[Rfam]
RNA sequence: GGUCUGUGAUGAGUUUUGGCAUGUAUUAUCUGAGUAUAAAUUUGAAGAUUAUAAUUUUAUUACUCUGAGACCUG
Numbered sequence: 001g002g003u004c005u006g007u008g009a010u011g012a013g014u015u016u017u018g019g020c021a022u023g024u025a026u027u028a029u030c031u032g033a034g035u036a037u038a039a040a041u042u043u044g045a046a047g048a049u050u051a052u053a054a055u056u057u058u059a060u061u062a063c064u065c066u067g068a069g070a071c072c073u074g
Base pairs, nucleotide, nucleotide: 001072002071003070004069
RNA: Small nucleolar RNA SNORD45
Organism: Melanocharis versteri